[Rfam]
RNA sequence: UAGGAGAGUCUGUUAAGCUCAGGAGGGAUAGCGCCAUUAAUUCAUAUGAUGUUAGUUGGCGCUAUCCAUCCUGAGUUUUACUGGUUCUUCUU
Numbered sequence: 001u002a003g004g005a006g007a008g009u010c011u012g013u014u015a016a017g018c019u020c021a022g023g024a025g026g027g028a029u030a031g032c033g034c035c036a037u038u039a040a041u042u043c044a045u046a047u048g049a050u051g052u053u054a055g056u057u058g059g060c061g062c063u064a065u066c067c068a069u070c071c072u073g074a075g076u077u078u079u080a081c082u083g084g085u086u087c088u089u090c091u092u
Base pairs, nucleotide, nucleotide: 010083016077017076018075019074020073021072022071023070024069026067027066028065029064030063031062032061033060034059035058